Description
Rfam assigns this 278-nucleotide RNA from Blumeria graminis to the family "A. fumigatus sRNA Afu_309". The match comes from Rfam's covariance-model search (139 bits). The literature on the family includes a 2008 paper in Nucleic Acids Res by Jochl et al., "Small ncRNA transcriptome analysis from Aspergillus fumigatus suggests a novel mechanism for regulation of protein synthesis". The family's consensus secondary structure was predicted with WAR.
RNA sequence: UUUCUUGGCCCAUCAUCAGACUUGUAUCCAGUGUUCCGCUCAAUUUUCGGAUUGUAGCGUUGAAUUCUGCGAUAAUUCAAUGGCAAUGAGUUGUGUCUAACACUAUUGUGUGCAUGAUGCUACCCUAUUGACAAGUCUCAGAGUAAUCAUACUUCUUGAACCUGAGCUCGCCUCGGCUGAGCUCGGUAAAAGAUACUAUAAGGCGUCAUAUUCCACCUCUUUUCACUGAAGGCCGUCGGCUACUGAAGUUAAAGAAAAACCAUGACAUGCCUACAUAA
Numbered sequence: 001u002u003u004c005u006u007g008g009c010c011c012a013u014c015a016u017c018a019g020a021c022u023u024g025u026a027u028c029c030a031g032u033g034u035u036c037c038g039c040u041c042a043a044u045u046u047u048c049g050g051a052u053u054g055u056a057g058c059g060u061u062g063a064a065u066u067c068u069g070c071g072a073u074a075a076u077u078c079a080a081u082g083g084c085a086a087u088g089a090g091u092u093g094u095g096u097c098u099a100a101c102a103c104u105a106u107u108g109u110g111u112g113c114a115u116g117a118u119g120c121u122a123c124c125c126u127a128u129u130g131a132c133a134a135g136u137c138u139c140a141g142a143g144u145a146a147u148c149a150u151a152c153u154u155c156u157u158g159a160a161c162c163u164g165a166g167c168u169c170g171c172c173u174c175g176g177c178u179g180a181g182c183u184c185g186g187u188a189a190a191a192g193a194u195a196c197u198a199u200a201a202g203g204c205g206u207c208a209u210a211u212u213c214c215a216c217c218u219c220u221u222u223u224c225a226c227u228g229a230a231g232g233c234c235g236u237c238g239g240c241u242a243c244u245g246a247a248g249u250u251a252a253a254g255a256a257a258a259a260c261c262a263u264g265a266c267a268u269g270c271c272u273a274c275a276u277a278a
Stems, first nucleotide, its partner, number of pairs: 018138008026073003029069003033065004037059004041054005084130005091122001093120001095118003149197001160187003164184006170177002202271003205266005218255005225249003231241004